[Rfam]
RNA sequence: UACCUAAACCAAGAGCUUGCUCUCGGCACGGUAUUAAAUCCAUUUGACACUAACAAGCUCGCCGUAGAGCACUGUGUCAAAUGGUCACGGCUGGAAACGGUCGUGGGUGGCUUAGGCCAUC
Numbered sequence: 001u002a003c004c005u006a007a008a009c010c011a012a013g014a015g016c017u018u019g020c021u022c023u024c025g026g027c028a029c030g031g032u033a034u035u036a037a038a039u040c041c042a043u044u045u046g047a048c049a050c051u052a053a054c055a056a057g058c059u060c061g062c063c064g065u066a067g068a069g070c071a072c073u074g075u076g077u078c079a080a081a082u083g084g085u086c087a088c089g090g091c092u093g094g095a096a097a098c099g100g101u102c103g104u105g106g107g108u109g110g111c112u113u114a115g116g117c118c119a120u121c
Stems, first nucleotide, its partner, number of pairs: 001033004009026002012023004040084011057070004086105008106121006